[Rfam]
RNA sequence: AUUUGCUGUUUAUUAAAAACACUUCUGCAUGGUGAAUCCCCCUGUGCGGAGGGGCGACUGGUGUAGGUAGCAUUUAUUAUGUUAUAGGCAAGCCGACGCGGGUUCAGUGACACCGGCUGAAUUCACCGGGAGGCACCCGGCACCAUGCAAGAAAAAGAAUGUGCAUGCAAACAUGCCCCUCUCCGGAGGGGCAUUUUUUAUGG
Numbered sequence: 001a002u003u004u005g006c007u008g009u010u011u012a013u014u015a016a017a018a019a020c021a022c023u024u025c026u027g028c029a030u031g032g033u034g035a036a037u038c039c040c041c042c043u044g045u046g047c048g049g050a051g052g053g054g055c056g057a058c059u060g061g062u063g064u065a066g067g068u069a070g071c072a073u074u075u076a077u078u079a080u081g082u083u084a085u086a087g088g089c090a091a092g093c094c095g096a097c098g099c100g101g102g103u104u105c106a107g108u109g110a111c112a113c114c115g116g117c118u119g120a121a122u123u124c125a126c127c128g129g130g131a132g133g134c135a136c137c138c139g140g141c142a143c144c145a146u147g148c149a150a151g152a153a154a155a156a157g158a159a160u161g162u163g164c165a166u167g168c169a170a171a172c173a174u175g176c177c178c179c180u181c182u183c184c185g186g187a188g189g190g191g192c193a194u195u196u197u198u199u200a201u202g203g
Stems, first nucleotide, its partner, number of pairs: 027148008039054005061089002092099002100124004105119003126140005164202003173194008
RNA: Gammaproteobacterial sRNA STnc100
Organism: Escherichia coli